RNA sequence: AAGCGCUGAAGUAAGAGAGUGCGCCGGUAGGCAUUGUCUUACGGAGCUUUCAGGAGGGGUUGUGCAAUGAAACCUCAAACCGGCGUAGGCUAAGAAGCUGAAAGAAAAUGCUCUAA
Numbered sequence: 001a002a003g004c005g006c007u008g009a010a011g012u013a014a015g016a017g018a019g020u021g022c023g024c025c026g027g028u029a030g031g032c033a034u035u036g037u038c039u040u041a042c043g044g045a046g047c048u049u050u051c052a053g054g055a056g057g058g059g060u061u062g063u064g065c066a067a068u069g070a071a072a073c074c075u076c077a078a079a080c081c082g083g084c085g086u087a088g089g090c091u092a093a094g095a096a097g098c099u100g101a102a103a104g105a106a107a108a109u110g111c112u113c114u115a116a
Stems, first nucleotide, its partner, number of pairs: 001049004011042006018035005024083004064111003088099004
Rfam assigns this 116-nucleotide RNA from Dorea sp. 5-2 to the family "drum RNA". Firmicutes, Bacteroidetes (1 example), Proteobacteria (2 examples), Spirochaetes (2 examples). The organism belongs to Dorea, within Bacteria. By type it is a small RNA.